[Rfam]
RNA sequence: UGGCAUUCUUUAAAAGUCAUUGUAGAAGCGAGCUCGUCGCGACCCCUGCCAGCCCUUUUCAGGGCUGCAAUUCUACA
Numbered sequence: 001u002g003g004c005a006u007u008c009u010u011u012a013a014a015a016g017u018c019a020u021u022g023u024a025g026a027a028g029c030g031a032g033c034u035c036g037u038c039g040c041g042a043c044c045c046c047u048g049c050c051a052g053c054c055c056u057u058u059u060c061a062g063g064g065c066u067g068c069a070a071u072u073c074u075a076c077a
Stems, first nucleotide, its partner, number of pairs: 016043003021077007028040003050067007

A member of the RNA family "Mammalian CPEB3 ribozyme" from Parnassius apollo, 77 nucleotides long. From the family's description: The mammalian CPEB3 ribozyme is a self cleaving RNA located in the second intron of the CPEB3 gene which belongs to a family of genes regulating messenger RNA polyadenylation. Its family is annotated with RNA nuclease activity in the Gene Ontology. The source organism's lineage runs through Eukaryota, Hexapoda, Dicondylia, Panorpida and Parnassius. A reference for the family is Salehi-Ashtiani et al. (2006), "A genomewide search for ribozymes reveals an HDV-like sequence in the human CPEB3 gene", Science. Rfam 15.1 lists 5,706 matches to the family in 197 species. A search with the family's covariance model found it, with a score of 36 bits.